Shown here is a 132-nucleotide sequence from Heliornis fulica, a member of the family "Small nucleolar RNA SNORA24".
The family's consensus secondary structure was predicted with RNAfold.
Rfam 15.1 lists 852 matches to the family in 501 species.
Rfam's curators write: ACA24 is a member of the H/ACA class of snoRNA that guide the sites of modification of uridines to pseudouridines.
By type it is an H/ACA-box small nucleolar RNA.
It scores 65 bits against the family's covariance model.
RNA sequence: AUCCAUGACUCCAUGGGGGCUGCCGCCCGUGGCUGUCUCCCUUCCUAGGCAUGGAAGAGCAGUUGCUUGCUAAUUGGCAUAGCCUUUACUCCUCUUGUGGGUAUUGGUCUUUGACUGUGGCAAGUCACAAGU
Numbered sequence: 001a002u003c004c005a006u007g008a009c010u011c012c013a014u015g016g017g018g019g020c021u022g023c024c025g026c027c028c029g030u031g032g033c034u035g036u037c038u039c040c041c042u043u044c045c046u047a048g049g050c051a052u053g054g055a056a057g058a059g060c061a062g063u064u065g066c067u068u069g070c071u072a073a074u075u076g077g078c079a080u081a082g083c084c085u086u087u088a089c090u091c092c093u094c095u096u097g098u099g100g101g102u103a104u105u106g107g108u109c110u111u112u113g114a115c116u117g118u119g120g121c122a123a124g125u126c127a128c129a130a131g132u
Base pairs, nucleotide, nucleotide: 002055003054004053005052006051007050015041016040017039018038020035022033023032024031068129069128074123075122076121078119079118080117083107084106088102089101091100092099